[Rfam]
RNA: MIR6450 microRNA precursor family
RNA sequence: AGGACCUAAUUCUCUUAGGUCCGUCGUCUGGACCCAAUUCUCUUGGGUGCUGCGCUAGGACCCAAUUCUUUUGGGUUCGGUAUCAGGACCUAAGCCUAAUGGGUCCU
Dot-bracket structure: ((((((((.....(((((((((......(((((((((.....((((((.(.......).)))))).....)))))))))......))))))))).....))))))))